The record is an 84-nucleotide RNA from Pan troglodytes, which matches "mir-548 microRNA precursor family" in Rfam.
RNA sequence: UAUUAGGUUGGUGCAAAUGUAAUCGUGGCUUUUGCCAUUACUUUCAAUGGCAAAAACCAUGAUUACAUUUGCACCAACCUAAUA
Numbered sequence: 001u002a003u004u005a006g007g008u009u010g011g012u013g014c015a016a017a018u019g020u021a022a023u024c025g026u027g028g029c030u031u032u033u034g035c036c037a038u039u040a041c042u043u044u045c046a047a048u049g050g051c052a053a054a055a056a057c058c059a060u061g062a063u064u065a066c067a068u069u070u071g072c073a074c075c076a077a078c079c080u081a082a083u084a
Base pairs, nucleotide, nucleotide: 001084002083003082004081005080006079007078008077009076010075011074012073013072014071015070016069017068018067019066020065021064022063023062024061025060026059027058028057030055031054032053033052034051035050036049037048038047039046
Source information
The family's consensus secondary structure was predicted with WAR. Lineage of the source: Eukaryota > Metazoa > Euteleostomi > Catarrhini > Pan. On this family, see Witten et al., BMC Biol 2010: "Ultra-high throughput sequencing-based small RNA discovery and discrete statistical biomarker analysis in a collection of cervical tumours and matched controls".